Shown here is a 117-nucleotide sequence from Streptomyces silvensis, a member of the family "Streptomyces-metK RNA". Lineage of the source: Bacteria > Bacillati > Kitasatosporales > Streptomycetaceae > Streptomyces. Rfam classes the family as a small RNA. The match comes from Rfam's covariance-model search (117 bits).
RNA sequence: ACGAGACAAGUGACCACACGGCGGAGUGUGACCGAUAAACUGGUCGUGGACGACGUCGAGCGCAGCUCUCGGCCCGUCCGCCAAUGAUCAGCCAGCAGCCGCUGCAACCACAGGGAG
Numbered sequence: 001a002c003g004a005g006a007c008a009a010g011u012g013a014c015c016a017c018a019c020g021g022c023g024g025a026g027u028g029u030g031a032c033c034g035a036u037a038a039a040c041u042g043g044u045c046g047u048g049g050a051c052g053a054c055g056u057c058g059a060g061c062g063c064a065g066c067u068c069u070c071g072g073c074c075c076g077u078c079c080g081c082c083a084a085u086g087a088u089c090a091g092c093c094a095g096c097a098g099c100c101g102c103u104g105c106a107a108c109c110a111c112a113g114g115g116a117g
Stems, first nucleotide, its partner, number of pairs: 048079005056072005093104004